[Rfam]
RNA sequence: AAGUACGGUGCACCCGGGCGUCUCCGAGAUUGAAAUGACGAUGGUUUCCGCAAUGCUCGUGCAAGAGUAUUCAGCCGUUCUGUGUUACAGUUUCAUACGUGUUAGAUCAACGGCAGAAGUU
Numbered sequence: 001a002a003g004u005a006c007g008g009u010g011c012a013c014c015c016g017g018g019c020g021u022c023u024c025c026g027a028g029a030u031u032g033a034a035a036u037g038a039c040g041a042u043g044g045u046u047u048c049c050g051c052a053a054u055g056c057u058c059g060u061g062c063a064a065g066a067g068u069a070u071u072c073a074g075c076c077g078u079u080c081u082g083u084g085u086u087a088c089a090g091u092u093u094c095a096u097a098c099g100u101g102u103u104a105g106a107u108c109a110a111c112g113g114c115a116g117a118a119g120u121u
Stems, first nucleotide, its partner, number of pairs: 003062006010056002017049002020046001021044002023041002074114006083104002086101003090098001
Dot-bracket structure: ..((((((.((.....((.(((((...............)).)).).)).....))))))))...........((((((...((.(((.(.......)))).))....)))))).......
Shown here is a 121-nucleotide RNA from Dendrobium catenatum, a member of the family "small nucleolar RNA snoR134".
A reference for the family is Chen and Wu (2009), "Mining small RNA sequencing data: a new approach to identify small nucleolar RNAs in Arabidopsis", Nucleic Acids Res.
Rfam classes the family as an H/ACA-box small nucleolar RNA.